[Rfam]
Rfam assigns this 127-nucleotide RNA from Pseudomonas oryzihabitans to the family "TPP riboswitch aptamer (THI element)".
RNA sequence: GCGUUCUUGUCGGGGUGCGCUACGAGGCGCUGAGAUCGGGUAGUCCCGGAUCCCGUUGAACCUGAUCAGGCUAGGCGCGCCGCAUGGCGGUGCGUCAACCUGCGUAGGGAACAAGAGGGCGUCCGCA
Number, nucleotide and partner (000 for none) at each position: 001g000002c000003g000004u000005u000006c115007u114008u113009g112010u111011c055012g054013g053014g052015g000016u049017g030018c029019g028020c027021u026022a000023c000024g000025a000026g021027g020028c019029g018030c017031u000032g000033a000034g000035a000036u000037c048038g047039g046040g045041u000042a000043g000044u000045c040046c039047c038048g037049g016050a000051u000052c014053c013054c012055g011056u000057u000058g000059a000060a000061c108062c107063u106064g105065a000066u000067c102068a101069g100070g099071c000072u000073a000074g000075g000076c000077g000078c000079g000080c000081c000082g000083c000084a000085u000086g000087g000088c000089g000090g000091u000092g000093c000094g000095u000096c000097a000098a000099c070100c069101u068102g067103c000104g000105u064106a063107g062108g061109g000110a000111a010112c009113a008114a007115g006116a000117g000118g000119g000120c000121g000122u000123c000124c000125g000126c000127a000
Vitamin B(1) in its active form thiamin pyrophosphate (TPP) is an essential coenzyme that is synthesised by coupling of pyrimidine and thiazole moieties in bacteria. For this family Rfam cites "Thiamine derivatives bind messenger RNAs directly to regulate bacterial gene expression" (Winkler et al., Nature, 2002). Gene Ontology term of the family: thiamine pyrophosphate binding. The match comes from Rfam's covariance-model search (67 bits).